[Rfam]
The record is a 219-nucleotide sequence from Medicago truncatula, which matches "MIR2655 microRNA precursor family" in Rfam. It scores 166 bits against the family's covariance model. The source organism's lineage runs through Eukaryota, Streptophyta, Fabales, Papilionoideae and Medicago. Its family is annotated with RISC complex and miRNA-mediated post-transcriptional gene silencing in the Gene Ontology.
RNA sequence: CCCUUAACUAUUAAAAGUUUCGUUUUGGUCCCUUAACUUAUUUUUAGGUUUUGUUUUGGUCCCUUAACUCUUCCUUCGUCAACCACUUUGGUCCUUUAUGCUAGGAUGAAUGUAUUAGAGUUAAGGGACCAAAACGAAACCAAAAAAUAAGUUAAGGGACCAAAACGAAACCAAAAAAUAAGUUAAGGGAUCAAAACAAAACUUUUAAUAGUUAAGGGA
Numbered sequence: 001c002c003c004u005u006a007a008c009u010a011u012u013a014a015a016a017g018u019u020u021c022g023u024u025u026u027g028g029u030c031c032c033u034u035a036a037c038u039u040a041u042u043u044u045u046a047g048g049u050u051u052u053g054u055u056u057u058g059g060u061c062c063c064u065u066a067a068c069u070c071u072u073c074c075u076u077c078g079u080c081a082a083c084c085a086c087u088u089u090g091g092u093c094c095u096u097u098a099u100g101c102u103a104g105g106a107u108g109a110a111u112g113u114a115u116u117a118g119a120g121u122u123a124a125g126g127g128a129c130c131a132a133a134a135c136g137a138a139a140c141c142a143a144a145a146a147a148u149a150a151g152u153u154a155a156g157g158g159a160c161c162a163a164a165a166c167g168a169a170a171c172c173a174a175a176a177a178a179u180a181a182g183u184u185a186a187g188g189g190a191u192c193a194a195a196a197c198a199a200a201a202c203u204u205u206u207a208a209u210a211g212u213u214a215a216g217g218g219a
Base pairs, nucleotide, nucleotide: 002217003216004215005214006213007212008211023196024195025194027192028191029190031188032187033186034185035184036183037182038181039180040179041178042177043176045174047172